[Rfam]
RNA sequence: GCCUAGCCCUGAUAGCAGCGGCAUCCUUUAUUGACAUUUUUUAUGGCAAUAAAGAUAAAGCGGAUAGUAGGAAAUUGC
Number, nucleotide and partner (000 for none) at each position: 001g000002c000003c000004u000005a000006g000007c000008c000009c070010u069011g068012a000013u066014a065015g000016c000017a000018g061019c060020g000021g000022c000023a056024u055025c054026c000027u000028u000029u051030a050031u049032u048033g047034a000035c045036a044037u043038u000039u000040u000041u000042u000043a037044u036045g035046g000047c033048a032049a031050u030051a029052a000053a000054g025055a024056u023057a000058a000059a000060g019061c018062g000063g000064a000065u014066a013067g000068u011069a010070g009071g000072a000073a000074a000075u000076u000077g000078c000
Rfam assigns this 78-nucleotide sequence from Flavobacterium noncentrifugens to the family "Flavo-1 RNA". The base pairs follow the family's consensus structure, which is taken from published work.